[Rfam]
RNA sequence: AGCAGUGAUGAAAUUUUACUUUUUUCUGACACCUCAUAUGAUCAAUGUGAUUCAAACUAUUGUAAUUUACUACUGAAGUU
Numbered sequence: 001a002g003c004a005g006u007g008a009u010g011a012a013a014u015u016u017u018a019c020u021u022u023u024u025u026c027u028g029a030c031a032c033c034u035c036a037u038a039u040g041a042u043c044a045a046u047g048u049g050a051u052u053c054a055a056a057c058u059a060u061u062g063u064a065a066u067u068u069a070c071u072a073c074u075g076a077a078g079u080u
Base pairs, nucleotide, nucleotide: 001080002079003078038048039047040046
About this RNA: Shown here is an 80-nucleotide RNA sequence from Scaptodrosophila lebanonensis, a member of the family "Small nucleolar RNA Me28S-Gm3255". A reference for the family is Huang et al. (2005), "Genome-wide analyses of two families of snoRNA genes from Drosophila melanogaster, demonstrating the extensive utilization of introns for coding of snoRNAs", RNA. It scores 50 bits against the family's covariance model. Its family is annotated with RNA processing and nucleolus in the Gene Ontology.